[Rfam]
RNA: Fluoride riboswitch aptamer (crcB RNA motif)
RNA sequence: AAUGAAAUUGGAGAUGAAGUUCUCCAUGAUUAAAUAUCAAAACUGCUUUAUGCUAAUGACUUCUACACUAAG
Numbered sequence: 001a002a003u004g005a006a007a008u009u010g011g012a013g014a015u016g017a018a019g020u021u022c023u024c025c026a027u028g029a030u031u032a033a034a035u036a037u038c039a040a041a042a043c044u045g046c047u048u049u050a051u052g053c054u055a056a057u058g059a060c061u062u063c064u065a066c067a068c069u070a071a072g
Stems, first nucleotide, its partner, number of pairs: 010025004016063006045053002